[Rfam]
RNA sequence: CUCAAGCAAAAGACUAAUAAAUAAUAAUUUAUUAUGAAAAAAAAGGAGCAAUACCAAACUUCGUGAUAGAACAAGAAGUUUGGUAUUGCUCCUUU
Numbered sequence: 001c002u003c004a005a006g007c008a009a010a011a012g013a014c015u016a017a018u019a020a021a022u023a024a025u026a027a028u029u030u031a032u033u034a035u036g037a038a039a040a041a042a043a044a045g046g047a048g049c050a051a052u053a054c055c056a057a058a059c060u061u062c063g064u065g066a067u068a069g070a071a072c073a074a075g076a077a078g079u080u081u082g083g084u085a086u087u088g089c090u091c092c093u094u095u
Base pairs, nucleotide, nucleotide: 042095043094044093045092046091047090048089049088050087051086052085053084054083056081057080058079060077061076062075064073
Dot-bracket structure: .........................................(((((((((((((.(((.(((.(........).))).))).)))))))))))))
Description: The record is a 95-nucleotide RNA sequence from Morus notabilis, which matches "Plastid-psbA-1 3UTR RNA" in Rfam. A reference for the family is Richter et al. (2023), "Retrograde signaling in plants: A critical review focusing on the GUN pathway and beyond", Plant Commun. The match comes from Rfam's covariance-model search (55 bits). The family's consensus secondary structure was predicted with LocARNA.